[Rfam]
RNA: Bacterial large subunit ribosomal RNA, nucleotides 996 to 1569
RNA sequence: CUCUCCGAAAACUAUUUAGGUAGUGCCUCAAGUAUCACCAUCGGGGGUAGAGCACUGUAUUGGCUAGGGGGCCGUUUAGGUCUACCAAACCAAAGCAAACUGCGAAUACCGAUGAGUGCGAGCUUGGGAGACAGACACCGGGUGCUAACGUCCGGUGUCGAAAGGGAAACAACCCAGACCGACAGCUAAGGUCCCAAAGCAUGGUUAAGUGGAAAACGAAGUGGGAAGGCGAAGACAGUCAGGAAGUUGGCUUAGAAGCAGCCAUCCUUUAAAGAAAGCGUAAUAGCUCACUGAUCGAGUCGUCCUGCGCGGAAGAUGUAACGGGGCUAAACCAUGCACCGAAGCUUCGGAUUUGUACGCUCCACUUUAAUUUAUUGGCACAAGCUUGUUGCUGGUUCGCGGAGCGAAUCACGCAACAAAGCGACCAUCACUAAUCGAGUUAUCACCUGAUUGUGGUGGGGUAGCUUGUUGCUGGUUCGCGGAGCGAAUCACGCAACAAAGCGACCAUCACUAAUCGAGGUUUGAUUGGUGGUGGGGCUAGUGAAUUAAAGGGAGCGUACAGAUGGUAGGAGAG
Numbered sequence: 001c002u003c004u005c006c007g008a009a010a011a012c013u014a015u016u017u018a019g020g021u022a023g024u025g026c027c028u029c030a031a032g033u034a035u036c037a038c039c040a041u042c043g044g045g046g047g048u049a050g051a052g053c054a055c056u057g058u059a060u061u062g063g064c065u066a067g068g069g070g071g072c073c074g075u076u077u078a079g080g081u082c083u084a085c086c087a088a089a090c091c092a093a094a095g096c097a098a099a100c101u102g103c104g105a106a107u108a109c110c111g112a113u114g115a116g117u118g119c120g121a122g123c124u125u126g127g128g129a130g131a132c133a134g135a136c137a138c139c140g141g142g143u144g145c146u147a148a149c150g151u152c153c154g155g156u157g158u159c160g161a162a163a164g165g166g167a168a169a170c171a172a173c174c175c176a177g178a179c180c181g182a183c184a185g186c187u188a189a190g191g192u193c194c195c196a197a198a199g200c201a202u203g204g205u206u207a208a209g210u211g212g213a214a215a216a217c218g219a220a221g222u223g224g225g226a227a228g229g230c231g232a233a234g235a236c237a238g239u240c241a242g243g244a245a246g247u248u249g250g251c252u253u254a255g256a257a258g259c260a261g262c263c264a265u266c267c268u269u270u271a272a273a274g275a276a277a278g279c280g281u282a283a284u285a286g287c288u289c290a291c292u293g294a295u296c297g298a299g300u301c302g303u304c305c306u307g308c309g310c311g312g313a314a315g316a317u318g319u320a321a322c323g324g325g326g327c328u329a330a331a332c333c334a335u336g337c338a339c340c341g342a343a344g345c346u347u348c349g350g351a352u353u354u355g356u357a358c359g360c361u362c363c364a365c366u367u368u369a370a371u372u373u374a375u376u377g378g379c380a381c382a383a384g385c386u387u388g389u390u391g392c393u394g395g396u397u398c399g400c401g402g403a404g405c406g407a408a409u410c411a412c413g414c415a416a417c418a419a420a421g422c423g424a425c426c427a428u429c430a431c432u433a434a435u436c437g438a439g440u441u442a443u444c445a446c447c448u449g450a451u452u453g454u455g456g457u458g459g460g461g462u463a464g465c466u467u468g469u470u471g472c473u474g475g476u477u478c479g480c481g482g483a484g485c486g487a488a489u490c491a492c493g494c495a496a497c498a499a500a501g502c503g504a505c506c507a508u509c510a511c512u513a514a515u516c517g518a519g520g521u522u523u524g525a526u527u528g529g530u531g532g533u534g535g536g537g538c539u540a541g542u543g544a545a546u547u548a549a550a551g552g553g554a555g556c557g558u559a560c561a562g563a564u565g566g567u568a569g570g571a572g573a574g
Stems, first nucleotide, its partner, number of pairs: 001574006011024005026130001027128007035121001036118003039114006050103001051101002056097003060093004067086002069083005134159010164175003179350004184346003190340003199337007217311002221308006228301003238295005244268001246266001249263003269273001274289001278287002351564013